[Rfam]
RNA sequence: GAACAUCGCCGUCCCGUGGCCUCUGUCCGAACCGACCCUGACGUACUUCCCCGACGCCAGGUUCGCCGUCUCGGACAGAGACCACGGGACGGGGAUGGUCCGGA
Numbered sequence: 001g002a003a004c005a006u007c008g009c010c011g012u013c014c015c016g017u018g019g020c021c022u023c024u025g026u027c028c029g030a031a032c033c034g035a036c037c038c039u040g041a042c043g044u045a046c047u048u049c050c051c052c053g054a055c056g057c058c059a060g061g062u063u064c065g066c067c068g069u070c071u072c073g074g075a076c077a078g079a080g081a082c083c084a085c086g087g088g089a090c091g092g093g094g095a096u097g098g099u100c101c102g103g104a
Stems, first nucleotide, its partner, number of pairs: 010091007018083002021080010032068001033065003037061004042056003
A member of the RNA family "mraW RNA" from Mycolicibacterium grossiae, 104 nucleotides long. The family's RNA type in Rfam is cis-regulatory element.